[Rfam]
RNA sequence: CGUCGAAUUGUUGCAGGCAUGGGGAAGAUGUCUGGGACGAACCGGGGACCCAAUGUGUGUGGGGUGAAUCGGACCACGUUCGCGUGGACCGUAGGGCAGACCUUGGCCCGAAUCCGUCAGCUCACCCGGUAGACGUCGAGGA
Numbered sequence: 001c002g003u004c005g006a007a008u009u010g011u012u013g014c015a016g017g018c019a020u021g022g023g024g025a026a027g028a029u030g031u032c033u034g035g036g037a038c039g040a041a042c043c044g045g046g047g048a049c050c051c052a053a054u055g056u057g058u059g060u061g062g063g064g065u066g067a068a069u070c071g072g073a074c075c076a077c078g079u080u081c082g083c084g085u086g087g088a089c090c091g092u093a094g095g096g097c098a099g100a101c102c103u104u105g106g107c108c109c110g111a112a113u114c115c116g117u118c119a120g121c122u123c124a125c126c127c128g129g130u131a132g133a134c135g136u137c138g139a140g141g142a
Stems, first nucleotide, its partner, number of pairs: 001135004008040005041130006051061002062115003070091003094109004
c-di-AMP riboswitch aptamer (ydaO/yuaA leader): a 142-nucleotide RNA from Aeromicrobium sp. The organism belongs to Aeromicrobium, within Bacteria. It scores 61 bits against the family's covariance model.